[Rfam]
RNA sequence: ACGUUCGGGUAAUCGCUGCAAGAAGCAUUUGCACUCUUGUAGAGGAAAGUCCAUGCUCGCACGAGCUGAGAUGCUCGUAGUGUUCGUGCCUAGUGAAUUCAUAAGCUAGGGCAGCCUGAAUAAGGCUGACGGCCGGGAAAAUACCUAAGUCCUUACGGAUAUGGUAUGAAUACCUAUAAAAGUGCCACAGUGACGGAGCCUUUUCAGAAAUGAAAAGGGUGGAACGAGGUAAACCCCACGAGCGAGAAACCCAAAUAAUGGUAGGGGCACUUUCUCUGAGGAAUUGAACGAGGAGAAGGACAGAUUCCUUGGGAUCUGUAGAUAGAUGAUUACCACCUAAGUACGAGGCGUUUACGCCGUUUGUAGUACUCUGGUACAGAACAUGGCUUACAGAA
Numbered sequence: 001a002c003g004u005u006c007g008g009g010u011a012a013u014c015g016c017u018g019c020a021a022g023a024a025g026c027a028u029u030u031g032c033a034c035u036c037u038u039g040u041a042g043a044g045g046a047a048a049g050u051c052c053a054u055g056c057u058c059g060c061a062c063g064a065g066c067u068g069a070g071a072u073g074c075u076c077g078u079a080g081u082g083u084u085c086g087u088g089c090c091u092a093g094u095g096a097a098u099u100c101a102u103a104a105g106c107u108a109g110g111g112c113a114g115c116c117u118g119a120a121u122a123a124g125g126c127u128g129a130c131g132g133c134c135g136g137g138a139a140a141a142u143a144c145c146u147a148a149g150u151c152c153u154u155a156c157g158g159a160u161a162u163g164g165u166a167u168g169a170a171u172a173c174c175u176a177u178a179a180a181a182g183u184g185c186c187a188c189a190g191u192g193a194c195g196g197a198g199c200c201u202u203u204u205c206a207g208a209a210a211u212g213a214a215a216a217g218g219g220u221g222g223a224a225c226g227a228g229g230u231a232a233a234c235c236c237c238a239c240g241a242g243c244g245a246g247a248a249a250c251c252c253a254a255a256u257a258a259u260g261g262u263a264g265g266g267g268c269a270c271u272u273u274c275u276c277u278g279a280g281g282a283a284u285u286g287a288a289c290g291a292g293g294a295g296a297a298g299g300a301c302a303g304a305u306u307c308c309u310u311g312g313g314a315u316c317u318g319u320a321g322a323u324a325g326a327u328g329a330u331u332a333c334c335a336c337c338u339a340a341g342u343a344c345g346a347g348g349c350g351u352u353u354a355c356g357c358c359g360u361u362u363g364u365a366g367u368a369c370u371c372u373g374g375u376a377c378a379g380a381a382c383a384u385g386g387c388u389u390a391c392a393g394a395a
Base pairs, nucleotide, nucleotide: 004395005394006393007391008334009333010332011331012330013329014328016042017041018040019039020038021037022036023035047389048388049387051386052385053384054383055382056246057245058244059243060242061078062077063076064075065074066073084241085240086239087238088237089110090109091108092107093106094105111130112128113127114126115125116124117123131236132235135175136174137173142166143165144164145163149160150159151158182234183233184230185229186228199218200217201216202215203214204213205212206211250266251265252264270299271298272297273296274295275294276293300319301318302317303316304315305314306313307312336374337373340370341369342368343367344366